RNA sequence: GGGAAGUGAUGAGUGGUUAAAACUCGCAAAUAAAAAUGCGAGAUGGGUGUCUGCUCCGCCUGUUUUACGACAAUUUGGCGCUCUCAUCUAUGCCUAUCUGAUCCC
Numbered sequence: 001g002g003g004a005a006g007u008g009a010u011g012a013g014u015g016g017u018u019a020a021a022a023c024u025c026g027c028a029a030a031u032a033a034a035a036a037u038g039c040g041a042g043a044u045g046g047g048u049g050u051c052u053g054c055u056c057c058g059c060c061u062g063u064u065u066u067a068c069g070a071c072a073a074u075u076u077g078g079c080g081c082u083c084u085c086a087u088c089u090a091u092g093c094c095u096a097u098c099u100g101a102u103c104c105c
Stems, first nucleotide, its partner, number of pairs: 001105004014096003018092001023042005045083007062076001065073001
Dot-bracket structure: ((((.........(((.(....(((((..........)))))..(((((((..........(..(.......)..))))))))........).))).....))))
RNA: Small nucleolar RNA Z279/snoR105/snoR108